[Rfam]
RNA sequence: AUGAAACUUUUUUGGCAAAAAUCAAUCCAUGGUUCUUAAAAGAAAUAUAUGGAGAAAGUGUGUGAAAGGGUCAUCAUAACGACCCUUCAUAAUCUACACCUUCAACAGUUUGCUUAAGCUUAGCCAUUGGCUUUCUCUGAUCAUUGAUCACAAGGAAUAUGGAGAAUCAAAAGCUAUCUUGUAAAGAGGUAUUAGUACUCCAUAGGAAGAGAAGCUUUGGCUAUAGCUUGGUAAACCGGCAAGUCACAAAAAGGCGACGGACUCCGUUAGGCGUCCU
Numbered sequence: 001a002u003g004a005a006a007c008u009u010u011u012u013u014g015g016c017a018a019a020a021a022u023c024a025a026u027c028c029a030u031g032g033u034u035c036u037u038a039a040a041a042g043a044a045a046u047a048u049a050u051g052g053a054g055a056a057a058g059u060g061u062g063u064g065a066a067a068g069g070g071u072c073a074u075c076a077u078a079a080c081g082a083c084c085c086u087u088c089a090u091a092a093u094c095u096a097c098a099c100c101u102u103c104a105a106c107a108g109u110u111u112g113c114u115u116a117a118g119c120u121u122a123g124c125c126a127u128u129g130g131c132u133u134u135c136u137c138u139g140a141u142c143a144u145u146g147a148u149c150a151c152a153a154g155g156a157a158u159a160u161g162g163a164g165a166a167u168c169a170a171a172a173g174c175u176a177u178c179u180u181g182u183a184a185a186g187a188g189g190u191a192u193u194a195g196u197a198c199u200c201c202a203u204a205g206g207a208a209g210a211g212a213a214g215c216u217u218u219g220g221c222u223a224u225a226g227c228u229u230g231g232u233a234a235a236c237c238g239g240c241a242a243g244u245c246a247c248a249a250a251a252a253g254g255c256g257a258c259g260g261a262c263u264c265c266g267u268u269a270g271g272c273g274u275c276c277u
Base pairs, nucleotide, nucleotide: 061091062090063089108236109235110234111233112232113231127225260275261274262273264271
Early nodulin 40: a 277-nucleotide RNA sequence from Cicer arietinum. Rfam links the family to the GO term nodulation. A reference for the family is Gultyaev and Roussis (2007), "Identification of conserved secondary structures and expansion segments in enod40 RNAs reveals new enod40 homologues in plants", Nucleic Acids Res. A search with the family's covariance model found it, with a score of 150 bits. The family's consensus secondary structure is taken from published work.